[Rfam]
RNA: Guanidine-I riboswitch aptamer
RNA sequence: ACUUGGCGCUUCUAGGGUUCCGGUUUGGCCCAAUCGGUAACUAGGUUGACCGAUGGGCGAAGCGGCUGGUCCGAGAGAAGCAAGCUGGCGCUAUGGUUCGGUGCAUUAUUCGCUAGCCACACGGCGGGAGAAAAGCCCGGGAGAG
Numbered sequence: 001a002c003u004u005g006g007c008g009c010u011u012c013u014a015g016g017g018u019u020c021c022g023g024u025u026u027g028g029c030c031c032a033a034u035c036g037g038u039a040a041c042u043a044g045g046u047u048g049a050c051c052g053a054u055g056g057g058c059g060a061a062g063c064g065g066c067u068g069g070u071c072c073g074a075g076a077g078a079a080g081c082a083a084g085c086u087g088g089c090g091c092u093a094u095g096g097u098u099c100g101g102u103g104c105a106u107u108a109u110u111c112g113c114u115a116g117c118c119a120c121a122c123g124g125c126g127g128g129a130g131a132a133a134a135g136c137c138c139g140g141g142a143g144a145g
Stems, first nucleotide, its partner, number of pairs: 008081005015072002020069002022066001023063004028058005084117007120140001122143001126138003